[Rfam]
This 87-nucleotide RNA sequence from Gossypium mustelinum belongs to the Rfam family "Small nucleolar RNA snoR53Y". Rfam classes the family as a C/D-box small nucleolar RNA. For this family Rfam cites "Multiple snoRNA gene clusters from Arabidopsis" (Brown et al., RNA, 2001). Lineage of the source: Eukaryota > Streptophytina > Euphyllophyta > Spermatophyta > Gossypium.
RNA sequence: GUUCCCUAUGAUAGCUUUUAAACCAUGCUAAUGCUGAUAAUCCAGUGAUUAAAAUAUCUUUUGGAUUCAUUCUGAUCUGAGGGAACU
Numbered sequence: 001g002u003u004c005c006c007u008a009u010g011a012u013a014g015c016u017u018u019u020a021a022a023c024c025a026u027g028c029u030a031a032u033g034c035u036g037a038u039a040a041u042c043c044a045g046u047g048a049u050u051a052a053a054a055u056a057u058c059u060u061u062u063g064g065a066u067u068c069a070u071u072c073u074g075a076u077c078u079g080a081g082g083g084a085a086c087u
Base pairs, nucleotide, nucleotide: 001086002085003084004083005082006081007080